Description
The record is a 404-nucleotide sequence from a Bacteroidales bacterium, which matches "Bacterial RNase P class A" in Rfam. Lineage of the source: Bacteria > Pseudomonadati > Bacteroidota > Bacteroidia > Bacteroidales. Rfam's curators write: Ribonuclease P (RNase P) is a ubiquitous endoribonuclease, found in archaea, bacteria and eukarya as well as chloroplasts and mitochondria.
RNA sequence: CCUGGCAGUGGUCGUUGUCGCGUCACACGCAGGUGUUUUCACCUGCGUGGCGAGGAAAGUCGGGACAGCACAGGGCACCAUACUUCCUAACGGGAAGGUCUCUUGAAGAAGGGAACAGAGAGGGCCACAGAAAAUUACCGCCCCGUUGUCGGAAGACGACGGAGUAAGGGUGAAAAUGUGAGGUAAGAGCUCACAGCGGCAGUUGGCGACAAUUGCCACGGGUAAACCUUAUGGGCUGCAAGGCCAAAUAUGCCGGUAGGGCCUGAUGUUUCAGGUCCAAUAAGUUGCCCGCUUAAUGCCGGUGGGUAGGCUGCUAGAGCCGGUUGGUGACAGCCGGCCCAGAUAAAUGACAAUGGUCUGCCAAUGGCAGAUAACAGAAUCCUGCUUACAAACUGCUACUACAG
Numbered sequence: 001c002c003u004g005g006c007a008g009u010g011g012u013c014g015u016u017g018u019c020g021c022g023u024c025a026c027a028c029g030c031a032g033g034u035g036u037u038u039u040c041a042c043c044u045g046c047g048u049g050g051c052g053a054g055g056a057a058a059g060u061c062g063g064g065a066c067a068g069c070a071c072a073g074g075g076c077a078c079c080a081u082a083c084u085u086c087c088u089a090a091c092g093g094g095a096a097g098g099u100c101u102c103u104u105g106a107a108g109a110a111g112g113g114a115a116c117a118g119a120g121a122g123g124g125c126c127a128c129a130g131a132a133a134a135u136u137a138c139c140g141c142c143c144c145g146u147u148g149u150c151g152g153a154a155g156a157c158g159a160c161g162g163a164g165u166a167a168g169g170g171u172g173a174a175a176a177u178g179u180g181a182g183g184u185a186a187g188a189g190c191u192c193a194c195a196g197c198g199g200c201a202g203u204u205g206g207c208g209a210c211a212a213u214u215g216c217c218a219c220g221g222g223u224a225a226a227c228c229u230u231a232u233g234g235g236c237u238g239c240a241a242g243g244c245c246a247a248a249u250a251u252g253c254c255g256g257u258a259g260g261g262c263c264u265g266a267u268g269u270u271u272c273a274g275g276u277c278c279a280a281u282a283a284g285u286u287g288c289c290c291g292c293u294u295a296a297u298g299c300c301g302g303u304g305g306g307u308a309g310g311c312u313g314c315u316a317g318a319g320c321c322g323g324u325u326g327g328u329g330a331c332a333g334c335c336g337g338c339c340c341a342g343a344u345a346a347a348u349g350a351c352a353a354u355g356g357u358c359u360g361c362c363a364a365u366g367g368c369a370g371a372u373a374a375c376a377g378a379a380u381c382c383u384g385c386u387u388a389c390a391a392a393c394u395g396c397u398a399c400u401a402c403a404g
Base pairs, nucleotide, nucleotide: 003398004397005396006395007394008393009392011389013355014354015353016352017351018350019349021052022051023050024049025048026047028045029044057387058386059385061384062383063382064381065380066238067237068236069235073290074289075288076287078234079233080232081231082230083097084096085095086094087093098116099114100113101112102111103110104109117229118228122227124223125222126221138169139168140165141164143162144161145160146159147158148157149156150155177195178194179193180192181191182190198217199216200215201214202213203212204211205210242312243311244310245309252303253302254301255300256299257298281295282294283293284292285291319338320337321336322335323334324333325332326331